[Rfam]
RNA sequence: ACAGUCUGAAAAUCACUUGGGAUUUUCUGUGGCCCCUGAUGCGAUAAUUGUGCCGACAGCAGAGGGAGCAUUAAACUCAUUGCCCAUAGUGUGGGUAGUGAAACCCAUGUUGCUAUAAUC
Numbered sequence: 001a002c003a004g005u006c007u008g009a010a011a012a013u014c015a016c017u018u019g020g021g022a023u024u025u026u027c028u029g030u031g032g033c034c035c036c037u038g039a040u041g042c043g044a045u046a047a048u049u050g051u052g053c054c055g056a057c058a059g060c061a062g063a064g065g066g067a068g069c070a071u072u073a074a075a076c077u078c079a080u081u082g083c084c085c086a087u088a089g090u091g092u093g094g095g096u097a098g099u100g101a102a103a104c105c106c107a108u109g110u111u112g113c114u115a116u117a118a119u120c
Stems, first nucleotide, its partner, number of pairs: 006050001008048001010045001014041002019034002065113001067111005077101005085091002
RNA: Small nucleolar RNA ACA64